A member of the RNA family "Glycine riboswitch aptamer" from Ornithinimicrobium tianjinense, 96 nucleotides long. The organism belongs to Ornithinimicrobium, within Bacteria.
[Rfam]
RNA sequence: CGAUCCCGCGAGCGAGAGACCCUGACCAUCCCGGUAGGGCGCCGAAGGGGCAAACUCCCCGUCAAGCUCUCAGGCGAAGAGGACCUCGCGGGUCAG
Numbered sequence: 001c002g003a004u005c006c007c008g009c010g011a012g013c014g015a016g017a018g019a020c021c022c023u024g025a026c027c028a029u030c031c032c033g034g035u036a037g038g039g040c041g042c043c044g045a046a047g048g049g050g051c052a053a054a055c056u057c058c059c060c061g062u063c064a065a066g067c068u069c070u071c072a073g074g075c076g077a078a079g080a081g082g083a084c085c086u087c088g089c090g091g092g093u094c095a096g
Stems, first nucleotide, its partner, number of pairs: 006091007020039004041075003044071002048069003054062002

Gene Ontology term of the family: glycine biosynthetic process.